[Rfam]
RNA sequence: AAUAGUUAAGUUAAUAAGAGUCAUUUAUAUCUCUAAUAUGGUGAGAUGUUUCUACAAGGUACCUUAAAUACCACUAAUGAUUUAUUUUUUUCAAUGG
Numbered sequence: 001a002a003u004a005g006u007u008a009a010g011u012u013a014a015u016a017a018g019a020g021u022c023a024u025u026u027a028u029a030u031c032u033c034u035a036a037u038a039u040g041g042u043g044a045g046a047u048g049u050u051u052c053u054a055c056a057a058g059g060u061a062c063c064u065u066a067a068a069u070a071c072c073a074c075u076a077a078u079g080a081u082u083u084a085u086u087u088u089u090u091u092c093a094a095u096g097g
Base pairs, nucleotide, nucleotide: 018083019082020081021080022079023078024077025076029047030046031045032044033043058072059071060070061069
The family of this 97-nucleotide sequence from Mycoplasma marinum is "Purine riboswitch aptamer". Gene Ontology term of the family: purine nucleobase biosynthetic process.